Rfam assigns this 200-nucleotide RNA from Trinickia symbiotica to the family "Burkholderia sRNA 11". The literature on the family includes a 2017 paper in Sci Rep by Sass et al., "Identification of small RNAs abundant in Burkholderia cenocepacia biofilms reveal putative regulators with a potential role in carbon and iron metabolism". It scores 124 bits against the family's covariance model. Identified by RNA-seq, RACE and Northern blot. Strongly expressed in biofilm. Identified in as ncRNA13. It is complimentary by 40 nucleotides with a gene encoding a regulatory protein (BCAL1948). ncS11 is strongly up-regulated in the stationary phase and biofilms, while BCAL1948 is down-regulated under these conditions. By type it is a small RNA.
RNA sequence: CUCGUUCGGAUCGGCGUGUCCGGUGCGAACUCCGACGGCUGCUCUUAUAGCAAGCCUGAUAGGGUGGCUGCGCUGUCCGUGGUCAACCACGGCUGCCGCAUGCGGUGCUCACGCUACCCCGAUGGCGGAUGAGCCCGCCGCCCGAAGGCGCGGUGUGCGCAUGAAAAAAGGCCCUCAUCUUUCGAUGGGGGCCUUUUACA
Numbered sequence: 001c002u003c004g005u006u007c008g009g010a011u012c013g014g015c016g017u018g019u020c021c022g023g024u025g026c027g028a029a030c031u032c033c034g035a036c037g038g039c040u041g042c043u044c045u046u047a048u049a050g051c052a053a054g055c056c057u058g059a060u061a062g063g064g065u066g067g068c069u070g071c072g073c074u075g076u077c078c079g080u081g082g083u084c085a086a087c088c089a090c091g092g093c094u095g096c097c098g099c100a101u102g103c104g105g106u107g108c109u110c111a112c113g114c115u116a117c118c119c120c121g122a123u124g125g126c127g128g129a130u131g132a133g134c135c136c137g138c139c140g141c142c143c144g145a146a147g148g149c150g151c152g153g154u155g156u157g158c159g160c161a162u163g164a165a166a167a168a169a170g171g172c173c174c175u176c177a178u179c180u181u182u183c184g185a186u187g188g189g190g191g192c193c194u195u196u197u198a199c200a
Stems, first nucleotide, its partner, number of pairs: 002035002004030005012022003037056003040052004062143004070099003073095001077092005102138003107134004112127004148160004166197014